[Rfam]
RNA: Small nucleolar RNA SNORD72
Organism: Larus smithsonianus
RNA sequence: AGCUUGUCAAUUAUGUUUUUUAUUAAAAAUGUCUGAACAUGUGAACUCCAUAGUGAUUUCAGUGCGUUACUGAGAGACGCU
Numbered sequence: 001a002g003c004u005u006g007u008c009a010a011u012u013a014u015g016u017u018u019u020u021u022a023u024u025a026a027a028a029a030u031g032u033c034u035g036a037a038c039a040u041g042u043g044a045a046c047u048c049c050a051u052a053g054u055g056a057u058u059u060c061a062g063u064g065c066g067u068u069a070c071u072g073a074g075a076g077a078c079g080c081u
Stems, first nucleotide, its partner, number of pairs: 002080002005077001007075002